[Rfam]
Nucleotides: 067
Base pairs, nucleotide, nucleotide: 014038015037016036017035018034022030023029041066042065043064044063045062046061047060048059049058050057
Number, partner (000 for none) and nucleotide at each position: 001000g002000a003000c004000c005000u006000u007000g008000c009000g010000u011000c012000g013000a014038c015037a016036g017035u018034c019000u020000g021000a022030u023029u024000u025000g026000c027000u028000g029023a030022a031000u032000c033000a034018g035017a036016u037015u038014g039000a040000u041066g042065g043064c044063u045062g046061g047060u048059g049058g050057c051000c052000c053000g054000u055000g056000u057050g058049c059048c060047a061046c062045c063044g064043g065042c066041c067000u
The family of this 67-nucleotide RNA from Pseudomonas sp. OIL-1 is "Pseudomonas sRNA P26". The match comes from Rfam's covariance-model search (52 bits). For this family Rfam cites "Identification of 17 Pseudomonas aeruginosa sRNAs and prediction of sRNA-encoding genes in 10 diverse pathogens using the bioinformatic tool sRNAPredict2" (Livny et al., Nucleic Acids Res, 2006). About the family: This small RNA (sRNA) was computationally identified in the genome of the opportunistic pathogen Pseudomonas aeruginosa and its expression verified by northern blot analysis. P26 is conserved across many Gammaproteobacteria species and appears to be consistently located between the DNA directed RNA polymerase (beta subunit) and 50S ribosomal protein L7/L12 genes. The family's consensus secondary structure was predicted with RNAalifold.